[Rfam]
RNA: Small nucleolar RNA SNORA55
RNA sequence: GCACUGGAAUCGCAUCCUGUCACUGCUGUGUUGUACAAGGAUAGGCAAUGCAGUGCUACAUAAACGCAGAGGAAAUCCAGACGGAGCAUAAUAUGCAUUGUGGUCUGUCUCUACACCUCUACCACAUGC
Numbered sequence: 001g002c003a004c005u006g007g008a009a010u011c012g013c014a015u016c017c018u019g020u021c022a023c024u025g026c027u028g029u030g031u032u033g034u035a036c037a038a039g040g041a042u043a044g045g046c047a048a049u050g051c052a053g054u055g056c057u058a059c060a061u062a063a064a065c066g067c068a069g070a071g072g073a074a075a076u077c078c079a080g081a082c083g084g085a086g087c088a089u090a091a092u093a094u095g096c097a098u099u100g101u102g103g104u105c106u107g108u109c110u111c112u113a114c115a116c117c118u119c120u121a122c123c124a125c126a127u128g129c
Base pairs, nucleotide, nucleotide: 001056002055003054004053005052016045017044018043019042021039066122068120069119070118071117079110080109081108082107083106084105085104093099